This 63-nucleotide sequence from Streptomyces sp. GMY02 belongs to the Rfam family "Fluoride riboswitch aptamer (crcB RNA motif)".
RNA sequence: GACCAGACGGGCGAUGAGGCUCGCCCUUGACCGCACAUCCGUGCUGAUGGCCUCUGCGAGCGA
Numbered sequence: 001g002a003c004c005a006g007a008c009g010g011g012c013g014a015u016g017a018g019g020c021u022c023g024c025c026c027u028u029g030a031c032c033g034c035a036c037a038u039c040c041g042u043g044c045u046g047a048u049g050g051c052c053u054c055u056g057c058g059a060g061c062g063a
Stems, first nucleotide, its partner, number of pairs: 010025004016054006033044004